[Rfam]
Description:
The record is a 103-nucleotide sequence from Amycolatopsis sp. CA-230715, which matches "Glycine riboswitch aptamer" in Rfam. This family represents the bacterial glycine riboswitch. Gene Ontology term of the family: glycine biosynthetic process. The organism belongs to Amycolatopsis, within Bacteria. It scores 62 bits against the family's covariance model.
Nucleotides: 103
Base pairs, nucleotide, nucleotide: 006098007097008096009095010094011093012092013091020045021044022043023042024041025040047082048081049080050078051077054076055075056074
Number, partner (000 for none) and nucleotide at each position: 001000c002000g003000a004000a005000c006098c007097c008096g009095c010094g011093c012092g013091g014000g015000a016000g017000a018000g019000u020045c021044c022043g023042g024041a025040c026000c027000a028000c029000a030000c031000a032000c033000c034000u035000g036000g037000u038000g039000a040025g041024u042023c043022c044021g045020g046000c047082g048081c049080c050078g051077a052000a053000g054076g055075a056074g057000c058000a059000a060000g061000u062000c063000c064000u065000c066000c067000c068000c069000g070000g071000a072000a073000c074056c075055u076054c077051u078050c079000a080049g081048g082047c083000a084000c085000c086000c087000a088000g089000g090000a091013c092012c093011g094010c095009g096008c097007g098006g099000g100000c101000g102000a103000g